[Rfam]
RNA: terC RNA
Organism: Sandarakinorhabdus fusca
RNA sequence: CUGCGGGCCCGGGCCCCUCUGGCGAUCGUUCAUCGAUCGUGAUGUCGGACCGCAUCG
Numbered sequence: 001c002u003g004c005g006g007g008c009c010c011g012g013g014c015c016c017c018u019c020u021g022g023c024g025a026u027c028g029u030u031c032a033u034c035g036a037u038c039g040u041g042a043u044g045u046c047g048g049a050c051c052g053c054a055u056c057g
Stems, first nucleotide, its partner, number of pairs: 006051002009048004022040007